The record is a 90-nucleotide sequence from Paenibacillus sp. FSL H7-0357, which matches "c-di-GMP-I riboswitch aptamer" in Rfam. Its Rfam clan is "c-di-GMP_I riboswitch clan".
[Rfam]
Nucleotides: 090
Stems, first nucleotide, its partner, number of pairs: 012037002017032006041083003045080003048075003055069004
Number, partner (000 for none) and nucleotide at each position: 001000c002000a003000u004000g005000u006000a007000u008000a009000a010000u011000c012037g013036c014000a015000a016000a017032c018031c019030g020029u021028u022027c023000g024000a025000a026000a027022g028021a029020g030019c031018g032017g033000g034000a035000c036013g037012c038000a039000a040000a041083g042082u043081c044000a045080g046079g047078a048075a049074u050073c051000u052000a053000c054000a055069g056068c057067a058066c059000u060000c061000u062000a063000a064000a065000g066058g067057u068056g069055c070000c071000a072000u073050g074049a075048u076000c077000g078047u079046c080045c081043g082042g083041c084000c085000g086000c087000c088000a089000u090000g